[Rfam]
RNA sequence: UUCUUAUCCAGAGAGGUGGAGGGACUUGGCCCAUUGAAGCCUCGGCAACAGACUCUUUGUGAGCACUGUGCCAAUUCCAACAAGCAAAAUUUUGCUUGAAAGAUAAGAA
Number, nucleotide and partner (000 for none) at each position: 001u109002u108003c107004u106005u105006a104007u103008c102009c000010a000011g000012a000013g043014a042015g041016g040017u039018g000019g000020a000021g032022g031023g030024a000025c000026u080027u079028g078029g077030c023031c022032c021033a000034u000035u000036g000037a000038a000039g017040c016041c015042u014043c013044g072045g071046c070047a069048a000049c068050a067051g064052a000053c000054u062055c000056u000057u000058u000059g000060u000061g000062a054063g000064c051065a000066c000067u050068g049069u047070g046071c045072c044073a000074a000075u000076u101077c029078c028079a027080a026081c098082a097083a096084g095085c094086a093087a000088a000089a000090u000091u000092u000093u086094g085095c084096u083097u082098g081099a000100a000101a076102g008103a007104u006105a005106a004107g003108a002109a001
The family of this 109-nucleotide RNA from Bacillus methanolicus is "SAM riboswitch aptamer (S box leader)". Taxonomically the source falls in Bacillus methanolicus (Bacteria, Bacillati, Bacillota, Caryophanales). It scores 96 bits against the family's covariance model.